[Rfam]
RNA: tRNA
Organism: Dendrobium catenatum
RNA sequence: GCAUCCAUGGCUGGAUACUUAAAGCGCCCAACUUAUAAUUGGCAAAUUCAUAGGUUCAAUUCCUACUGGAUGCA
Numbered sequence: 001g002c003a004u005c006c007a008u009g010g011c012u013g014g015a016u017a018c019u020u021a022a023a024g025c026g027c028c029c030a031a032c033u034u035a036u037a038a039u040u041g042g043c044a045a046a047u048u049c050a051u052a053g054g055u056u057c058a059a060u061u062c063c064u065a066c067u068g069g070a071u072g073c074a
Stems, first nucleotide, its partner, number of pairs: 001073007010025003028042004051065004